Nucleotides: 084
Base pairs, nucleotide, nucleotide: 001084002083003082004081005080006079007078008077
Number, partner (000 for none) and nucleotide at each position: 001084g002083g003082c004081c005080a006079g007078g008077g009000g010000g011000a012000a013000a014000g015000a016000a017000a018000a019000a020000a021000u022000a023000u024000a025000g026000a027000c028000u029000a030000a031000a032000g033000c034000a035000u036000u037000u038000g039000g040000u041000a042000u043000g044000g045000g046000c047000a048000a049000g050000c051000a052000g053000a054000g055000a056000g057000c058000u059000g060000g061000a062000a063000a064000a065000a066000u067000u068000u069000u070000c071000a072000a073000u074000u075000a076000a077008c078007c079006c080005u081004g082003g083002c084001c
Shown here is an 84-nucleotide RNA from Lentivirus humimdef1, a member of the family "HIV gag stem loop 3 (GSL3)". Rfam classes the family as a cis-regulatory element. On this family, see Damgaard et al., J Mol Biol 2004: "RNA interactions in the 5' region of the HIV-1 genome". Rfam's curators write: This family consists of several HIV gag stem loop 3 (GSL3) sequences. GSL3 is known to direct specific packaging of HIV-1 genomic RNA. Deletion of GSL3 leads to decreases in both viral RNA packaging and dimerisation. Lineage of the source: Viruses > Ortervirales > Retroviridae > Orthoretrovirinae > Lentivirus humimdef1.